Shown here is a 71-nucleotide RNA sequence from Nicotiana tabacum, a member of the family "MIR6151 microRNA precursor family".
[Rfam]
Nucleotides: 071
Base pairs, nucleotide, nucleotide: 004066006064007063009061010060011059012058013057014056015055016054017053018052020050021049022048024047025046027044028043029042030041031040032039
Number, partner (000 for none) and nucleotide at each position: 001000g002000a003000u004066c005000g006064u007063u008000g009061g010060a011059u012058g013057a014056g015055u016054g017053u018052g019000a020050g021049g022048a023000g024047u025046u026000g027044g028043a029042u030041u031040g032039a033000u034000u035000u036000c037000a038000c039032u040031c041030a042029a043028u044027c045000a046025g047024a048022u049021c050020c051000c052018c053017a054016c055015a056014u057013u058012c059011a060010u061009c062000a063007a064006a065000a066004g067000u068000u069000c070000g071000u
The family has 9 seed sequences and 930 matches in Rfam 15.1. Lineage of the source: Eukaryota > Euphyllophyta > Spermatophyta > Mesangiospermae > Nicotiana.